The record is a 91-nucleotide RNA from Triticum urartu, which matches "Small nucleolar RNA SNORD25" in Rfam. By type it is a C/D-box small nucleolar RNA. The base pairs follow the family's consensus structure, which was predicted with PFOLD.
RNA sequence: GUCCGCGAAGGUGAUGAGCCUUUGCAGACCUGUAAUGCUUCUUGCGAGCAUGAUCGCUUGAUUCAAAGAACAUCUAAGGGACCGGGUGGGC
Numbered sequence: 001g002u003c004c005g006c007g008a009a010g011g012u013g014a015u016g017a018g019c020c021u022u023u024g025c026a027g028a029c030c031u032g033u034a035a036u037g038c039u040u041c042u043u044g045c046g047a048g049c050a051u052g053a054u055c056g057c058u059u060g061a062u063u064c065a066a067a068g069a070a071c072a073u074c075u076a077a078g079g080g081a082c083c084g085g086g087u088g089g090g091c
Stems, first nucleotide, its partner, number of pairs: 002090005
Rfam links the family to the GO terms RNA processing and nucleolus. The source organism's lineage runs through Eukaryota, Spermatophyta, Mesangiospermae, Petrosaviidae and Triticum. Rfam 15.1 lists 985 matches to the family in 241 species. A reference for the family is Qu et al. (2001), "Identification of 10 novel snoRNA gene clusters from Arabidopsis thaliana", Nucleic Acids Res.